The record is a 98-nucleotide RNA from Sebaldella termitidis, which matches "Purine riboswitch aptamer" in Rfam.
Riboswitches are metabolite binding domains within certain messenger RNAs that serve as precision sensors for their corresponding targets.
RNA sequence: AAUAAACGGAUUAUUUUAACUCAUAUAUGUCCUGAAUAUGGCAGGACGUUUCUACAAGUUACCUUAAAUAACGGGCUAUGAGUAAGAGUACAAAGCAU
Numbered sequence: 001a002a003u004a005a006a007c008g009g010a011u012u013a014u015u016u017u018a019a020c021u022c023a024u025a026u027a028u029g030u031c032c033u034g035a036a037u038a039u040g041g042c043a044g045g046a047c048g049u050u051u052c053u054a055c056a057a058g059u060u061a062c063c064u065u066a067a068a069u070a071a072c073g074g075g076c077u078a079u080g081a082g083u084a085a086g087a088g089u090a091c092a093a094a095g096c097a098u
Base pairs, nucleotide, nucleotide: 019083020082021081022080023079024078025077029047030046031045032044033043034042058072059071060070061069
The match comes from Rfam's covariance-model search (63 bits).